[Rfam]
Overview: This 71-nucleotide RNA sequence belongs to the Rfam family "Transposase-2 RNA". Rfam classes the family as a small RNA. The family has 151 seed sequences and 214 matches in Rfam 15.1. The sequence is in the family's curated seed alignment.
RNA sequence: GAAGCGCGAACCAAGCGGUCAUCGACUGGUGGCGUGAGGCUUGGAGCUGGCCUUGGUAACGAGGCCAUGCA
Numbered sequence: 001g002a003a004g005c006g007c008g009a010a011c012c013a014a015g016c017g018g019u020c021a022u023c024g025a026c027u028g029g030u031g032g033c034g035u036g037a038g039g040c041u042u043g044g045a046g047c048u049g050g051c052c053u054u055g056g057u058a059a060c061g062a063g064g065c066c067a068u069g070c071a
Stems, first nucleotide, its partner, number of pairs: 011044005018033006048067008
Dot-bracket structure: ..........(((((..((((((....))))))......)))))...((((((((....))))))))....